[Rfam]
RNA sequence: UGUCUAACUCCUUGCAGACAAGACCCUAUCAAUAUUGCCUCUGCUUUUUUGAAUCUGAAUAGAGUAGUGCAAUAUUGCUUAUAGGGUCUUGACUUUGAGGGAUG
Number, nucleotide and partner (000 for none) at each position: 001u000002g000003u000004c000005u000006a000007a000008c000009u000010c000011c000012u000013u000014g000015c000016a000017g000018a000019c000020a090021a089022g088023a087024c086025c085026c084027u083028a082029u081030c077031a076032a075033u074034a073035u072036u071037g070038c069039c000040u000041c067042u066043g065044c064045u062046u000047u000048u000049u000050u000051g000052a000053a000054u000055c000056u000057g000058a000059a000060u000061a000062g045063a000064g044065u043066a042067g041068u000069g038070c037071a036072a035073u034074a033075u032076u031077g030078c000079u000080u000081a029082u028083a027084g026085g025086g024087u023088c022089u021090u020091g000092a000093c000094u000095u000096u000097g000098a000099g000100g000101g000102a000103u000104g000
Overview: Shown here is a 104-nucleotide RNA sequence from Clupea harengus, a member of the family "mir-454 microRNA precursor family". The source organism's lineage runs through Eukaryota, Bilateria, Chordata, Clupeiformes and Clupea. The literature on the family includes a 2006 paper in Genome Res by Berezikov et al., "Many novel mammalian microRNA candidates identified by extensive cloning and RAKE analysis". A search with the family's covariance model found it, with a score of 91 bits. Gene Ontology terms of the family: RISC complex and miRNA-mediated post-transcriptional gene silencing.